[Rfam]
RNA sequence: AUCUGCUGACGCGGGAGCCCAUCCACUGGGCUGAGAGGACGGCUGCACGGCGCCGUCGACCGUCUGAACCUGACCGGGGUAAUGCCGGCGUAGGGAGUUGGGAUGUCUGUCGA
Numbered sequence: 001a002u003c004u005g006c007u008g009a010c011g012c013g014g015g016a017g018c019c020c021a022u023c024c025a026c027u028g029g030g031c032u033g034a035g036a037g038g039a040c041g042g043c044u045g046c047a048c049g050g051c052g053c054c055g056u057c058g059a060c061c062g063u064c065u066g067a068a069c070c071u072g073a074c075c076g077g078g079g080u081a082a083u084g085c086c087g088g089c090g091u092a093g094g095g096a097g098u099u100g101g102g103a104u105g106u107c108u109g110u111c112g113a
Stems, first nucleotide, its partner, number of pairs: 006101005011063004017031005038057005069094004075088001077086002